Bacterial RNase P class B: a 291-nucleotide sequence from Mycoplasmopsis fermentans. Clan: RNaseP clan. Pairs were carried over by alignment from the consensus structure, which is taken from published work.
RNA sequence: AGCAUUGGCUAACAGCUGCUUGAAAGAGUAGAGGAAAGUCCACGCUAGCACAACCUGCGAUGGUUGUAGUGAUCAUGCUAGGCCCAAUAAGCCUAGGCUUAGACGACUAGUGCCACAGAGACGAGAAUUGUGAAACGCGGUAAACUCCAUGAGUUAGAAACCCAAAUAUUGGUAGGGGAACUUUUCAACGGAAAUUGAACCAAAGAAAAGAGUUGAUUAAUCAACUAGAUAAAUUGUUAGCACCUGAGAGGGUACAAAACGUGGCUUAUAAAUGCUAAAACACUUGCGCGA
Numbered sequence: 001a002g003c004a005u006u007g008g009c010u011a012a013c014a015g016c017u018g019c020u021u022g023a024a025a026g027a028g029u030a031g032a033g034g035a036a037a038g039u040c041c042a043c044g045c046u047a048g049c050a051c052a053a054c055c056u057g058c059g060a061u062g063g064u065u066g067u068a069g070u071g072a073u074c075a076u077g078c079u080a081g082g083c084c085c086a087a088u089a090a091g092c093c094u095a096g097g098c099u100u101a102g103a104c105g106a107c108u109a110g111u112g113c114c115a116c117a118g119a120g121a122c123g124a125g126a127a128u129u130g131u132g133a134a135a136c137g138c139g140g141u142a143a144a145c146u147c148c149a150u151g152a153g154u155u156a157g158a159a160a161c162c163c164a165a166a167u168a169u170u171g172g173u174a175g176g177g178g179a180a181c182u183u184u185u186c187a188a189c190g191g192a193a194a195u196u197g198a199a200c201c202a203a204a205g206a207a208a209a210g211a212g213u214u215g216a217u218u219a220a221u222c223a224a225c226u227a228g229a230u231a232a233a234u235u236g237u238u239a240g241c242a243c244c245u246g247a248g249a250g251g252g253u254a255c256a257a258a259a260c261g262u263g264g265c266u267u268a269u270a271a272a273u274g275c276u277a278a279a280a281c282a283c284u285u286g287c288g289c290g291a
Base pairs, nucleotide, nucleotide: 004273005272006271007269008241009240010239011238012237013236014235016031017030018029019028020027021026036267037266038265040264041263042262043261044260045157046156047155048154049153050067051066052065053064054063055062073152074151075150076149077148078096079095080094081093082092083091097104098102105147106146110145111144112141113140114139161177162176163175181210182209183208184207185206186205211226212225213224214223215222216221243252244251245250
By type it is a ribozyme.